[Rfam]
Nucleotides: 092
Base pairs, nucleotide, nucleotide: 001092002091003090004089
Number, partner (000 for none) and nucleotide at each position: 001092g002091a003090g004089c005000c006000g007000u008000g009000a010000a011000g012000a013000a014000a015000c016000c017000a018000u019000g020000c021000g022000c023000u024000g025000u026000u027000c028000u029000g030000g031000a032000a033000g034000c035000c036000a037000a038000g039000g040000g041000u042000c043000u044000u045000u046000c047000c048000a049000c050000u051000c052000g053000u054000c055000u056000g057000a058000c059000c060000a061000u062000c063000g064000g065000a066000c067000g068000g069000a070000c071000g072000a073000u074000a075000a076000g077000g078000a079000g080000c081000g082000c083000u084000u085000c086000c087000g088000a089004g090003c091002u092001c
This 92-nucleotide RNA sequence from Coffea canephora belongs to the Rfam family "small nucleolar RNA snoR114". The source organism's lineage runs through Eukaryota, eudicotyledons, Pentapetalae, Coffeeae and Coffea. Gene Ontology terms of the family: RNA processing and nucleolus. It is annotated as a C/D-box small nucleolar RNA. The family has 24 seed sequences and 1,645 matches in Rfam 15.1. Pairs were carried over by alignment from the consensus structure, which was predicted with RNAalifold. A reference for the family is Chen and Wu (2009), "Mining small RNA sequencing data: a new approach to identify small nucleolar RNAs in Arabidopsis", Nucleic Acids Res.